Annotation
This 91-nucleotide RNA sequence from Cnephaeus nilssonii belongs to the Rfam family "mir-9261 microRNA precursor family". NCBI's taxonomy places the organism under Eukaryota, Amniota, Laurasiatheria, Vespertilionidae, Cnephaeus.
RNA sequence: AACAAUUUGUCCCGCGUCCCACGGCGUUUUAAAAAAGUCCCUAUUUUAGGGACUUGUUUAAAAUGCCGUGGGACGCGGGACAAAUUGUUAA
Numbered sequence: 001a002a003c004a005a006u007u008u009g010u011c012c013c014g015c016g017u018c019c020c021a022c023g024g025c026g027u028u029u030u031a032a033a034a035a036a037g038u039c040c041c042u043a044u045u046u047u048a049g050g051g052a053c054u055u056g057u058u059u060a061a062a063a064u065g066c067c068g069u070g071g072g073a074c075g076c077g078g079g080a081c082a083a084a085u086u087g088u089u090a091a
Stems, first nucleotide, its partner, number of pairs: 001089033035055001